[Rfam]
RNA sequence: UUCCGGCCGCCUGACACUUUCGUCUCAACCUCGCUUCAGAUGGCCGUAGGUGAGCAAAGUUUCAGGUGUGCCGGAAC
Numbered sequence: 001u002u003c004c005g006g007c008c009g010c011c012u013g014a015c016a017c018u019u020u021c022g023u024c025u026c027a028a029c030c031u032c033g034c035u036u037c038a039g040a041u042g043g044c045c046g047u048a049g050g051u052g053a054g055c056a057a058a059g060u061u062u063c064a065g066g067u068g069u070g071c072c073g074g075a076a077c
Stems, first nucleotide, its partner, number of pairs: 002075006008068007016060005024054004029050003
Rfam assigns this 77-nucleotide RNA sequence from Caenorhabditis japonica to the family "mir-87 microRNA precursor family".
On this family, see Sempere et al., Dev Biol 2003: "Temporal regulation of microRNA expression in Drosophila melanogaster mediated by hormonal signals and broad-Complex gene activity".
The organism belongs to Caenorhabditis, within Eukaryota.
Pairs were carried over by alignment from the consensus structure, which was predicted with RNAalifold.